[Rfam]
RNA sequence: CCUCCUGUGAUGAUGUAUUUCGAUGACUUUCGUUCUUCUGAGCUUGCUGAAGCCACGGAUUUCAAUCUGAGGAGG
Numbered sequence: 001c002c003u004c005c006u007g008u009g010a011u012g013a014u015g016u017a018u019u020u021c022g023a024u025g026a027c028u029u030u031c032g033u034u035c036u037u038c039u040g041a042g043c044u045u046g047c048u049g050a051a052g053c054c055a056c057g058g059a060u061u062u063c064a065a066u067c068u069g070a071g072g073a074g075g
Stems, first nucleotide, its partner, number of pairs: 001075003005071001
Record summary
This 75-nucleotide sequence from Himantopus himantopus belongs to the Rfam family "Small nucleolar RNA SNORD59". Gene Ontology terms of the family: RNA processing and nucleolus. It is annotated as a C/D-box small nucleolar RNA. Clan: SNORD59 clan. Lineage of the source: Eukaryota > Teleostomi > Euteleostomi > Amniota > Himantopus. It scores 65 bits against the family's covariance model.